[Rfam]
RNA sequence: CCAACCAAUUGAAUAAGCUCUCGUAUAAUCGUGGGGAUAUGGCCCACAAGUUUCUACCAGGCUACCGUAAAUGGCUUGACUACGAGUGAAGCACACCUCGCA
Numbered sequence: 001c002c003a004a005c006c007a008a009u010u011g012a013a014u015a016a017g018c019u020c021u022c023g024u025a026u027a028a029u030c031g032u033g034g035g036g037a038u039a040u041g042g043c044c045c046a047c048a049a050g051u052u053u054c055u056a057c058c059a060g061g062c063u064a065c066c067g068u069a070a071a072u073g074g075c076u077u078g079a080c081u082a083c084g085a086g087u088g089a090a091g092c093a094c095a096c097c098u099c100g101c102a
Stems, first nucleotide, its partner, number of pairs: 018088001020086006029049001031047005058078007
Shown here is a 102-nucleotide RNA sequence from Tumebacillus algifaecis, a member of the family "Purine riboswitch aptamer". Taxonomically the source falls in Tumebacillus (Bacteria, Bacilli, Caryophanales, Alicyclobacillaceae). Gene Ontology term of the family: purine nucleobase biosynthetic process. The base pairs follow the family's consensus structure, which is taken from published work.